mir-15 microRNA precursor family: an 86-nucleotide RNA sequence from Callorhinchus milii. Its Rfam clan is "mir-15 clan".
[Rfam]
RNA sequence: GUCGGCAACGCUUUAGCAGCACGUAAAUACUGGAGUUGAGAUCCCUGUGUCUCCAGUAUUGCCAAUGCUGCUCUAGUGAGGCCGAC
Numbered sequence: 001g002u003c004g005g006c007a008a009c010g011c012u013u014u015a016g017c018a019g020c021a022c023g024u025a026a027a028u029a030c031u032g033g034a035g036u037u038g039a040g041a042u043c044c045c046u047g048u049g050u051c052u053c054c055a056g057u058a059u060u061g062c063c064a065a066u067g068c069u070g071c072u073c074u075a076g077u078g079a080g081g082c083c084g085a086c
Stems, first nucleotide, its partner, number of pairs: 001086006015072007026060010
Rfam describes the family as follows. This family represents the related mir-15a and mir-15b sequences. In humans miR-15a and miR-16 are clustered within 0.5 kb at 13q14. This region has been shown to be deleted in more than half of B cell chronic lymphocytic leukaemias (CLL). Both miR-15a and miR-16 are deleted or down-regulated in more than two thirds of CLL cases.